[Rfam]
RNA sequence: GUUUACGGUAGCUGAAGAGAGCCGUCUAUUGACAGUUCACUAUGGAUGCUGUCAUGGAGUCGCUCUCUUCAGACACCUCUCA
Number, nucleotide and partner (000 for none) at each position: 001g000002u000003u000004u000005a000006c000007g000008g000009u000010a000011g000012c000013u000014g070015a069016a068017g067018a066019g000020a064021g063022c062023c000024g000025u058026c057027u056028a055029u000030u000031g053032a052033c051034a000035g049036u048037u000038c000039a000040c000041u000042a000043u000044g000045g000046a000047u000048g036049c035050u000051g033052u032053c031054a000055u028056g027057g026058a025059g000060u000061c000062g022063c021064u020065c000066u018067c017068u016069u015070c014071a000072g000073a000074c000075a000076c000077c000078u000079c000080u000081c000082a000